Rfam assigns this 134-nucleotide sequence from Sorex araneus to the family "U11 spliceosomal RNA".
Pairs were carried over by alignment from the consensus structure, which is taken from published work.
The sequence is in the family's curated seed alignment.
The family's RNA type in Rfam is spliceosomal small nuclear RNA.
Lineage of the source: Eukaryota > Eumetazoa > Chordata > Euteleostomi > Sorex.
[Rfam]
RNA sequence: AAAAAGGGCUUCUGCCGUGAGUGGCACACGUAGGGCAAAUCGCUUGCUCUACGUGCGGAAUCGACAUCAAGAGAUUUCGGAAGCAUAAUUUUUGCACCGCAGGGCAGCUAGUGAUCGUUGGUCCUGGCGCCCCG
Numbered sequence: 001a002a003a004a005a006g007g008g009c010u011u012c013u014g015c016c017g018u019g020a021g022u023g024g025c026a027c028a029c030g031u032a033g034g035g036c037a038a039a040u041c042g043c044u045u046g047c048u049c050u051a052c053g054u055g056c057g058g059a060a061u062c063g064a065c066a067u068c069a070a071g072a073g074a075u076u077u078c079g080g081a082a083g084c085a086u087a088a089u090u091u092u093u094g095c096a097c098c099g100c101a102g103g104g105c106a107g108c109u110a111g112u113g114a115u116c117g118u119u120g121g122u123c124c125u126g127g128c129g130c131c132c133c134g
Base pairs, nucleotide, nucleotide: 008084009083010082011081012080013026014025015024016023017022027055028054029053030052031051032050033049034048035047036046037045038044056079057078058077059076060075061074062073102132103131104130105129107128108127109126110125111124113123114122115121116120